[Rfam]
RNA sequence: CCGUGCUAAGUGGGGAGGUAGCGGUGCCCUGUACUCGCAAUCCGCUAUAGCGAGGCUGAAUCCCUUCUCGAGGCUAUGCUUUUGUGCAGCCUGCCCUAUGUAAGUGGUGUUGACAACCGGGUUCUGCGCAAUGGAAACCCGUGAAUCCUGUCAGGUCCGGAAGGAAGCAGCAGUAAGCGGACUCUUCUAUGUGCCGCAGAGCUGCCCGGUUCGAGCUAACUGCAUAGGUAACGUGCAUGAAAGCAUUGUCGACAGAAGGUGCACGG
Numbered sequence: 001c002c003g004u005g006c007u008a009a010g011u012g013g014g015g016a017g018g019u020a021g022c023g024g025u026g027c028c029c030u031g032u033a034c035u036c037g038c039a040a041u042c043c044g045c046u047a048u049a050g051c052g053a054g055g056c057u058g059a060a061u062c063c064c065u066u067c068u069c070g071a072g073g074c075u076a077u078g079c080u081u082u083u084g085u086g087c088a089g090c091c092u093g094c095c096c097u098a099u100g101u102a103a104g105u106g107g108u109g110u111u112g113a114c115a116a117c118c119g120g121g122u123u124c125u126g127c128g129c130a131a132u133g134g135a136a137a138c139c140c141g142u143g144a145a146u147c148c149u150g151u152c153a154g155g156u157c158c159g160g161a162a163g164g165a166a167g168c169a170g171c172a173g174u175a176a177g178c179g180g181a182c183u184c185u186u187c188u189a190u191g192u193g194c195c196g197c198a199g200a201g202c203u204g205c206c207c208g209g210u211u212c213g214a215g216c217u218a219a220c221u222g223c224a225u226a227g228g229u230a231a232c233g234u235g236c237a238u239g240a241a242a243g244c245a246u247u248g249u250c251g252a253c254a255g256a257a258g259g260u261g262c263a264c265g266g
Stems, first nucleotide, its partner, number of pairs: 001266006009057003012030004017025001019023001034054005063259006072250003076246001079243010092230002096227006104220002106217003115211008123200006129191002132189005139180004148173004156165003